RNA: mir-34 microRNA precursor family
RNA sequence: UACACGGUGGCAGUGUGGUUAGCUGGUUGUGAUAUUUGAACCACGACCACUAUCCAUACUUCCUUCGUGAA
Numbered sequence: 001u002a003c004a005c006g007g008u009g010g011c012a013g014u015g016u017g018g019u020u021a022g023c024u025g026g027u028u029g030u031g032a033u034a035u036u037u038g039a040a041c042c043a044c045g046a047c048c049a050c051u052a053u054c055c056a057u058a059c060u061u062c063c064u065u066c067g068u069g070a071a
Stems, first nucleotide, its partner, number of pairs: 003069004009063002012060007020052003024049008